[Rfam]
Nucleotides: 088
Base pairs, nucleotide, nucleotide: 001019002018003017004016005015006014022044023043024042025041026040027039028038045059046058047057048056
Number, partner (000 for none) and nucleotide at each position: 001019c002018u003017u004016a005015c006014u007000a008000a009000u010000g011000g012000g013000u014006a015005g016004u017003a018002a019001g020000u021000u022044u023043a024042u025041g026040g027039g028038g029000a030000c031000u032000a033000a034000c035000c036000c037000u038028c039027c040026u041025c042024g043023u044022a045059g046058c047057g048056g049000a050000u051000a052000g053000a054000a055000c056048c057047c058046g059045c060000a061000a062000c063000g064000g065000a066000c067000u068000u069000c070000u071000a072000a073000a074000a075000g076000g077000a078000g079000a080000a081000a082000u083000a084000a085000a086000a087000u088000g

A member of the RNA family "freshwater-2 RNA", 88 nucleotides long. Pairs were carried over by alignment from the consensus structure, which is taken from published work. By type it is a cis-regulatory element. The sequence is in the family's curated seed alignment.